Selenocysteine insertion sequence 1: a 65-nucleotide sequence from Conger conger. Rfam classes the family as a cis-regulatory element. The family has 61 seed sequences and 3,793 matches in Rfam 15.1. The organism belongs to Conger, within Eukaryota. The base pairs follow the family's consensus structure, which is taken from published work. Rfam's curators write: The incorporation of selenocysteine into a protein sequence is directed by an in-frame UGA codon (usually a stop codon) within the coding region of the mRNA. Selenoprotein mRNAs contain a conserved secondary structure in the 3' UTR that is required for the distinction of UGA stop from UGA selenocysteine.

RNA sequence: GUGGCGUAAUGAAGGCCUGUGCGGAAAGCAGCUCGCUGUGAGUCCAGGCUGGAUACCCCUGCCAC
Numbered sequence: 001g002u003g004g005c006g007u008a009a010u011g012a013a014g015g016c017c018u019g020u021g022c023g024g025a026a027a028g029c030a031g032c033u034c035g036c037u038g039u040g041a042g043u044c045c046a047g048g049c050u051g052g053a054u055a056c057c058c059c060u061g062c063c064a065c
Base pairs, nucleotide, nucleotide: 001065002064003063004062005061014050015049016048017047018046019045021043022042029038030037031036